Record summary: Shown here is a 331-nucleotide RNA from Anolis carolinensis, a member of the family "Small Cajal body-specific RNA 7". On this family, see Darzacq et al., EMBO J 2002: "Cajal body-specific small nuclear RNAs: a novel class of 2'-O-methylation and pseudouridylation guide RNAs".
RNA sequence: UGUAUGUGUUGUGUGUGUGUAAAUUUGAUUUUGAACAGUAAAUGCUAUUUUCAAUGGGAAAUUUUAUUUUAAACGGGAAAGUAGCACGGGUGGGUGGGGUGUGUGUGUGCUCAUGCAUGUGUGUAAAAGCUCUGUAUGAUGCAAAUUAUGGGUACUGAAAAAAAGCUGCUGAUUUCGGAGUGCAUCUGAGGCUGUUGCAAAACCAUAGGGUCUUGACUGCAACAUUGCCAAUGAUUAGAGACCCAAGUUAAACUCAUAGUUUGCAUCAAGGUGUUUUUAAACCUCUGACAGGUUCAUUUUGUCAUGCAAAGGAACCUGUGAUCUGAUCUAA
Numbered sequence: 001u002g003u004a005u006g007u008g009u010u011g012u013g014u015g016u017g018u019g020u021a022a023a024u025u026u027g028a029u030u031u032u033g034a035a036c037a038g039u040a041a042a043u044g045c046u047a048u049u050u051u052c053a054a055u056g057g058g059a060a061a062u063u064u065u066a067u068u069u070u071a072a073a074c075g076g077g078a079a080a081g082u083a084g085c086a087c088g089g090g091u092g093g094g095u096g097g098g099g100u101g102u103g104u105g106u107g108u109g110c111u112c113a114u115g116c117a118u119g120u121g122u123g124u125a126a127a128a129g130c131u132c133u134g135u136a137u138g139a140u141g142c143a144a145a146u147u148a149u150g151g152g153u154a155c156u157g158a159a160a161a162a163a164a165g166c167u168g169c170u171g172a173u174u175u176c177g178g179a180g181u182g183c184a185u186c187u188g189a190g191g192c193u194g195u196u197g198c199a200a201a202a203c204c205a206u207a208g209g210g211u212c213u214u215g216a217c218u219g220c221a222a223c224a225u226u227g228c229c230a231a232u233g234a235u236u237a238g239a240g241a242c243c244c245a246a247g248u249u250a251a252a253c254u255c256a257u258a259g260u261u262u263g264c265a266u267c268a269a270g271g272u273g274u275u276u277u278u279a280a281a282c283c284u285c286u287g288a289c290a291g292g293u294u295c296a297u298u299u300u301g302u303c304a305u306g307c308a309a310a311g312g313a314a315c316c317u318g319u320g321a322u323c324u325g326a327u328c329u330a331a
Stems, first nucleotide, its partner, number of pairs: 001330002004327001193224006199214002202211003
Dot-bracket structure: ((.(............................................................................................................................................................................................((((((((.(((....))).))....))))))......................................................................................................).)).